c-di-AMP riboswitch aptamer (ydaO/yuaA leader): a 168-nucleotide RNA sequence from Actinomadura harenae.
Rfam links the family to the GO terms regulation of gene expression and cyclic-di-AMP binding.
A search with the family's covariance model found it, with a score of 56 bits.
Lineage of the source: Bacteria > Bacillati > Actinomycetota > Streptosporangiales > Actinomadura.
[Rfam]
RNA sequence: UGGCCGGACGUGCCGAGUCCCGGACGCCCCCGUCCGGGAGCCGGGGACCCAUCCGCCGGACGCCCGUCCGGCCGGGGUGAAUUCGCCGGCGCCGCACGGCGUCGCGAUAGGGCGGACUCCCGCGCCCGAACCCGUCAGCUAACCCGGUAGGCCGACCAGAGGAGAGGA
Number, nucleotide and partner (000 for none) at each position: 001u000002g000003g000004c000005c000006g000007g000008a000009c000010g000011u000012g152013c151014c150015g000016a000017g000018u039019c038020c037021c036022g035023g034024a033025c032026g000027c000028c000029c000030c000031c000032g025033u024034c023035c022036g021037g020038g019039a018040g148041c147042c146043g145044g144045g143046g000047a000048c000049c000050c074051a000052u000053c000054c000055g000056c000057c000058g000059g000060a000061c000062g000063c000064c000065c000066g000067u000068c000069c000070g000071g000072c000073c000074g050075g133076g132077g131078u000079g000080a000081a000082u000083u107084c106085g105086c104087c000088g000089g000090c000091g000092c000093c000094g000095c000096a000097c000098g000099g000100c000101g000102u000103c000104g086105c085106g084107a083108u000109a000110g127111g126112g125113c124114g000115g000116a000117c000118u000119c000120c000121c000122g000123c000124g113125c112126c111127c110128g000129a000130a000131c077132c076133c075134g000135u000136c000137a000138g000139c000140u000141a000142a000143c045144c044145c043146g042147g041148u040149a000150g014151g013152c012153c000154g000155a000156c000157c000158a000159g000160a000161g000162g000163a000164g000165a000166g000167g000168a000